[Rfam]
RNA sequence: CAAUAUUGAUAAGCGCCUGAUCUGUAUAAAUACAACAGAUGACGAGGAAAGGGUUGAUCGAAAUAUUCGGCGGAUGGCCCUAGGGACUACACUCUAAAAAGAAACACAAAAACUAUCUGUGAAGAUAGAACAAAAGGUUUCUUACGUAGCUGG
Numbered sequence: 001c002a003a004u005a006u007u008g009a010u011a012a013g014c015g016c017c018u019g020a021u022c023u024g025u026a027u028a029a030a031u032a033c034a035a036c037a038g039a040u041g042a043c044g045a046g047g048a049a050a051g052g053g054u055u056g057a058u059c060g061a062a063a064u065a066u067u068c069g070g071c072g073g074a075u076g077g078c079c080c081u082a083g084g085g086a087c088u089a090c091a092c093u094c095u096a097a098a099a100a101g102a103a104a105c106a107c108a109a110a111a112a113c114u115a116u117c118u119g120u121g122a123a124g125a126u127a128g129a130a131c132a133a134a135a136g137g138u139u140u141c142u143u144a145c146g147u148a149g150c151u152g153g
Base pairs, nucleotide, nucleotide: 020040021039022038023037024036025035050081051080052079053078054077058070059069060068061067082095083094084093085092099143100142101141102140103139104138105137113128114127115126116125117124118123
glmS glucosamine-6-phosphate activated ribozyme aptamer: a 153-nucleotide RNA sequence from Candidatus Enterococcus wittei.
By type it is a riboswitch.
It scores 90 bits against the family's covariance model.
About the family: This entry contains a glucosamine-6-phosphate activated ribozyme that is found in the mRNA for GlmS. GlmS is an enzyme that uses fructose-6-phosphate and glutamine to generate glucosamine-6-phosphate. The ribozyme catalyses self cleavage of the glmS mRNA that is thought to regulate GlmS activity.